[Rfam]
RNA sequence: GGUCACGAUGACGACUCCAUAAUAUUCAAGCUCAACAGACCGGAUUGCAGGCUUUCUCUUUUUUGGAGUUAGUUUGCGUGUCGAUUAUCCCGCUGAACUGAGUGAUC
Numbered sequence: 001g002g003u004c005a006c007g008a009u010g011a012c013g014a015c016u017c018c019a020u021a022a023u024a025u026u027c028a029a030g031c032u033c034a035a036c037a038g039a040c041c042g043g044a045u046u047g048c049a050g051g052c053u054u055u056c057u058c059u060u061u062u063u064u065g066g067a068g069u070u071a072g073u074u075u076g077c078g079u080g081u082c083g084a085u086u087a088u089c090c091c092g093c094u095g096a097a098c099u100g101a102g103u104g105a106u107c
Base pairs, nucleotide, nucleotide: 001107002106003105004104005103006102